This 115-nucleotide RNA sequence from Medicago truncatula belongs to the Rfam family "mir-393 microRNA precursor family". Rfam links the family to the GO terms miRNA-mediated post-transcriptional gene silencing and RISC complex. It scores 65 bits against the family's covariance model.
[Rfam]
RNA sequence: AAAGGAGAAAUCCAAAGGGAUGGCAUGAUCCCAAUUAAGUAUUAUAUGAGAGAAAAUUAAAGUGACUAAAGUUGAAAUAUUAUAGGAUCAAUGCGAUCCCUUUGGAUGCCUCCUC
Numbered sequence: 001a002a003a004g005g006a007g008a009a010a011u012c013c014a015a016a017g018g019g020a021u022g023g024c025a026u027g028a029u030c031c032c033a034a035u036u037a038a039g040u041a042u043u044a045u046a047u048g049a050g051a052g053a054a055a056a057u058u059a060a061a062g063u064g065a066c067u068a069a070a071g072u073u074g075a076a077a078u079a080u081u082a083u084a085g086g087a088u089c090a091a092u093g094c095g096a097u098c099c100c101u102u103u104g105g106a107u108g109c110c111u112c113c114u115c
Base pairs, nucleotide, nucleotide: 003114004113005112006111010107011106012105013104014103015102016101017100018099019098020097021096023094024093025092026090027089028088029087030086031085035082